The record is a 451-nucleotide RNA from Lepidothrix coronata, which matches "Vertebrate telomerase RNA" in Rfam. Pairs were carried over by alignment from the consensus structure, which is taken from published work.
RNA sequence: GGUACGUGCCGUGUGGGGAGGUCCCUAGCUAACUAACCCUAAUGGCGCCCGCGCUCCCCUCGCCUGCCCGCUGUUUUAUUCGCUGACUUUCAGCGGGCGAGGGGAGCGCCCGGGGGGGUGGGGGGAGGCGGAGGAGGAAAGGGGUCCGGCAUUAAAAAAUGUCAGCGAGGGGGCUCCUCACCCCGGCCCGCUCUGGGGUCCCCGUCCCGCAGCCCGGAGCGCUCCCGCCGCCGCGCCGCACGGAGGCCGCGGUCGGCCGGCCCAGGGCCACUGCCGCCGCGAAGAGCUCGUCUCUGUCAGCCUCGGCGGCGGCCGGGAGAAGAGAAGCGGUCCCCCCCCAGCCCCGGGCAGUCGGGGGUCCCAGCAGAGCAAACCGGGAGCGGCGCCGCCGGGCUGGGCAGCCGCGGCUCCCUCAGCCGUGGGGUGCGCGGCCGGCGCCGCCCCGACACCC
Numbered sequence: 001g002g003u004a005c006g007u008g009c010c011g012u013g014u015g016g017g018g019a020g021g022u023c024c025c026u027a028g029c030u031a032a033c034u035a036a037c038c039c040u041a042a043u044g045g046c047g048c049c050c051g052c053g054c055u056c057c058c059c060u061c062g063c064c065u066g067c068c069c070g071c072u073g074u075u076u077u078a079u080u081c082g083c084u085g086a087c088u089u090u091c092a093g094c095g096g097g098c099g100a101g102g103g104g105a106g107c108g109c110c111c112g113g114g115g116g117g118g119u120g121g122g123g124g125g126a127g128g129c130g131g132a133g134g135a136g137g138a139a140a141g142g143g144g145u146c147c148g149g150c151a152u153u154a155a156a157a158a159a160u161g162u163c164a165g166c167g168a169g170g171g172g173g174c175u176c177c178u179c180a181c182c183c184c185g186g187c188c189c190g191c192u193c194u195g196g197g198g199u200c201c202c203c204g205u206c207c208c209g210c211a212g213c214c215c216g217g218a219g220c221g222c223u224c225c226c227g228c229c230g231c232c233g234c235g236c237c238g239c240a241c242g243g244a245g246g247c248c249g250c251g252g253u254c255g256g257c258c259g260g261c262c263c264a265g266g267g268c269c270a271c272u273g274c275c276g277c278c279g280c281g282a283a284g285a286g287c288u289c290g291u292c293u294c295u296g297u298c299a300g301c302c303u304c305g306g307c308g309g310c311g312g313c314c315g316g317g318a319g320a321a322g323a324g325a326a327g328c329g330g331u332c333c334c335c336c337c338c339c340a341g342c343c344c345c346g347g348g349c350a351g352u353c354g355g356g357g358g359u360c361c362c363a364g365c366a367g368a369g370c371a372a373a374c375c376g377g378g379a380g381c382g383g384c385g386c387c388g389c390c391g392g393g394c395u396g397g398g399c400a401g402c403c404g405c406g407g408c409u410c411c412c413u414c415a416g417c418c419g420u421g422g423g424g425u426g427c428g429c430g431g432c433c434g435g436c437g438c439c440g441c442c443c444c445g446a447c448a449c450c451c
Stems, first nucleotide, its partner, number of pairs: 005190002008187004013181006020175005053107005065099009082166006088159003193364007216333003220329004228315001230313005235307004248281005254276004259269003283295004378443001380441008402431005409424004
By type it is a non-coding RNA gene. The literature on the family includes a 2000 paper in Cell by Chen et al., "Secondary structure of vertebrate telomerase RNA". Its family is annotated with telomerase catalytic core complex, telomere maintenance via telomerase and telomerase activity in the Gene Ontology. Rfam describes the family as follows. Telomerase is a ribonucleoprotein reverse transcriptase that synthesises telomeric DNA. Telomerase RNAs differ greatly in sequence and structure between vertebrates, ciliates and yeasts, but they share a 5' pseudoknot structure close to the template sequence. Vertebrate telomerase RNAs have a 3' H/ACA snoRNA-like domain.